The family of this 98-nucleotide RNA from Gilliamella sp. Occ3-1 is "t44 RNA". It scores 66 bits against the family's covariance model. Lineage of the source: Bacteria > Pseudomonadota > Gammaproteobacteria > Orbaceae > Gilliamella.
[Rfam]
RNA sequence: AUUAAUUAACGUUAUAACACACACAUAUCAUUACACUUUUCCGGGGUGCCUUUUACUUUAUGUAUAGGUCGGAUAGAGCGGAUAUGUGGAGGCAUAAC
Dot-bracket structure: .....................((((((((......((((((((....((((..............)))))))).))))..))))))))..........
Numbered sequence: 001a002u003u004a005a006u007u008a009a010c011g012u013u014a015u016a017a018c019a020c021a022c023a024c025a026u027a028u029c030a031u032u033a034c035a036c037u038u039u040u041c042c043g044g045g046g047u048g049c050c051u052u053u054u055a056c057u058u059u060a061u062g063u064a065u066a067g068g069u070c071g072g073a074u075a076g077a078g079c080g081g082a083u084a085u086g087u088g089g090a091g092g093c094a095u096a097a098c
Stems, first nucleotide, its partner, number of pairs: 022088008036078004040073004048069004